[Rfam]
RNA sequence: GCCAAGAGUAGAAGCGUUCAGCGCUGCUGCCUCGGCCCCACAGGGGCCUGAAGCAGCAGGCGGGUCAUUGCUCUUGAA
Numbered sequence: 001g002c003c004a005a006g007a008g009u010a011g012a013a014g015c016g017u018u019c020a021g022c023g024c025u026g027c028u029g030c031c032u033c034g035g036c037c038c039c040a041c042a043g044g045g046g047c048c049u050g051a052a053g054c055a056g057c058a059g060g061c062g063g064g065u066c067a068u069u070g071c072u073c074u075u076g077a078a
Base pairs, nucleotide, nucleotide: 005074006073007072008071009070010069015063019064021061022060024059025058026057027056028055029054030053
Dot-bracket structure: ....((((((....(...[.((.(((((((......................))))))))).)]....))))))....